[Rfam]
RNA sequence: GAAGAAUCUAUUGUCUGCCAAGCUGUGCGGUUACCGCCGCACGGGGAGGGCAGCGAAAAGAGGAAUCG
Numbered sequence: 001g002a003a004g005a006a007u008c009u010a011u012u013g014u015c016u017g018c019c020a021a022g023c024u025g026u027g028c029g030g031u032u033a034c035c036g037c038c039g040c041a042c043g044g045g046g047a048g049g050g051c052a053g054c055g056a057a058a059a060g061a062g063g064a065a066u067c068g
Stems, first nucleotide, its partner, number of pairs: 011056003015053005023044009
The record is a 68-nucleotide sequence from Curvibacter sp. AEP1-3, which matches "ilvH RNA" in Rfam. By type it is a cis-regulatory element. Lineage of the source: Bacteria > Pseudomonadati > Pseudomonadota > Betaproteobacteria > Curvibacter. The family's consensus secondary structure is taken from published work.